Rfam assigns this 48-nucleotide sequence to the family "ssNA-helicase RNA".
[Rfam]
RNA sequence: GUCCAUAAGGGUUAGUAUUACCCUUAUGGAUGAUAGUAGCAUGUAGCA
Numbered sequence: 001g002u003c004c005a006u007a008a009g010g011g012u013u014a015g016u017a018u019u020a021c022c023c024u025u026a027u028g029g030a031u032g033a034u035a036g037u038a039g040c041a042u043g044u045a046g047c048a
Base pairs, nucleotide, nucleotide: 001031002030003029004028005027006026007025008024009023010022011021